[Rfam]
RNA sequence: AGCCUUUGUGCUGCCUGUUCACUUUUGGAAAUCGGUGACUGUGGUGUCAAAAAAGGCAUAAACCAAACACUUUUGCAGCCUUUUCUGCCCUUCUAUUUGAAAUCUUUGGUGUAGGAGCUGCAUAAGUAAUAGAU
Numbered sequence: 001a002g003c004c005u006u007u008g009u010g011c012u013g014c015c016u017g018u019u020c021a022c023u024u025u026u027g028g029a030a031a032u033c034g035g036u037g038a039c040u041g042u043g044g045u046g047u048c049a050a051a052a053a054a055g056g057c058a059u060a061a062a063c064c065a066a067a068c069a070c071u072u073u074u075g076c077a078g079c080c081u082u083u084u085c086u087g088c089c090c091u092u093c094u095a096u097u098u099g100a101a102a103u104c105u106u107u108g109g110u111g112u113a114g115g116a117g118c119u120g121c122a123u124a125a126g127u128a129a130u131a132g133a134u
Base pairs, nucleotide, nucleotide: 002057003056004055005054006053007052009049010048012046013045014044015043016041017040019038020037021036022035023034069127070126071125072124073122075121076120077119078118079117084115085114086113087112088111089109090108
About this RNA:
Shown here is a 134-nucleotide sequence from Bos taurus, a member of the family "Small nucleolar RNA SNORA13". The source organism's lineage runs through Eukaryota, Craniata, Teleostomi, Sarcopterygii and Bos. Its Rfam clan is "SNORA13 clan". The family's consensus secondary structure was predicted with CMfinder. ACA13 is a member of the H/ACA class of snoRNA that guide the sites of modification of uridines to pseudouridines. Rfam links the family to the GO terms nucleolus and RNA processing. Rfam classes the family as an H/ACA-box small nucleolar RNA.